The record is a 119-nucleotide RNA sequence from Vigna angularis, which matches "Listeria snRNA rli51" in Rfam. It scores 53 bits against the family's covariance model. Pairs were carried over by alignment from the consensus structure, which was predicted with RNAalifold. It is annotated as a cis-regulatory element.
RNA sequence: GUGUAAAAAGUUAAUGACGUCCAUUGCAUUUAACGAAAAAGUGAUCAAUUUGGUCCCUAAUUUAACAAAAUUGAGUCAAUAAUCCCCUUUCCGUUAAAUGCAAUGGACGUCAUUAACUU
Numbered sequence: 001g002u003g004u005a006a007a008a009a010g011u012u013a014a015u016g017a018c019g020u021c022c023a024u025u026g027c028a029u030u031u032a033a034c035g036a037a038a039a040a041g042u043g044a045u046c047a048a049u050u051u052g053g054u055c056c057c058u059a060a061u062u063u064a065a066c067a068a069a070a071u072u073g074a075g076u077c078a079a080u081a082a083u084c085c086c087c088u089u090u091c092c093g094u095u096a097a098a099u100g101c102a103a104u105g106g107a108c109g110u111c112a113u114u115a116a117c118u119u
Stems, first nucleotide, its partner, number of pairs: 008119003012115017034043002045074002049070001050068002053066002